[Rfam]
RNA sequence: GCUCUCUCAACUCUGCACAAUUGCAUCUUUGUCUGUGGUGUAAUUGACGUAAAUCGGGAGAGAAAGUAAGAGAGUCCGAAAUUGACAGCGGGAGAACUUCUUUUGUGGUCCUCCCAUUGCGUUUUUGGAACUCGACAGCA
Numbered sequence: 001g002c003u004c005u006c007u008c009a010a011c012u013c014u015g016c017a018c019a020a021u022u023g024c025a026u027c028u029u030u031g032u033c034u035g036u037g038g039u040g041u042a043a044u045u046g047a048c049g050u051a052a053a054u055c056g057g058g059a060g061a062g063a064a065a066g067u068a069a070g071a072g073a074g075u076c077c078g079a080a081a082u083u084g085a086c087a088g089c090g091g092g093a094g095a096a097c098u099u100c101u102u103u104u105g106u107g108g109u110c111c112u113c114c115c116a117u118u119g120c121g122u123u124u125u126u127g128g129a130a131c132u133c134g135a136c137a138g139c140a
Stems, first nucleotide, its partner, number of pairs: 002066002005063004011058003015054001019045008075129004081124001090115003094111001096109003
Dot-bracket structure: .((.((((..(((.(...((((((((...........))))))))........).))).)))).))........((((..(........(((.(.(((........))).).)))........).))))...........
RNA: Small nucleolar RNA SNORA64/SNORA10 family
Organism: Erpetoichthys calabaricus